[Rfam]
RNA sequence: GUGGGCUAUGGGGACAUGAGGCCAGUAACUGUUGGGGGCAAAAUUGUGGGUUCCUUAUGUGCCAUCGCUGGUGUCCUCACUAUUGCAUUGCCUGUCCCUGUUAUAGUCUCCAAC
Numbered sequence: 001g002u003g004g005g006c007u008a009u010g011g012g013g014a015c016a017u018g019a020g021g022c023c024a025g026u027a028a029c030u031g032u033u034g035g036g037g038g039c040a041a042a043a044u045u046g047u048g049g050g051u052u053c054c055u056u057a058u059g060u061g062c063c064a065u066c067g068c069u070g071g072u073g074u075c076c077u078c079a080c081u082a083u084u085g086c087a088u089u090g091c092c093u094g095u096c097c098c099u100g101u102u103a104u105a106g107u108c109u110c111c112a113a114c
Base pairs, nucleotide, nucleotide: 001114002113004111005110008107009106011104013102014101015100016099018097021095022094037077038076040074049063050062051061
RNA: Potassium channel RNA editing signal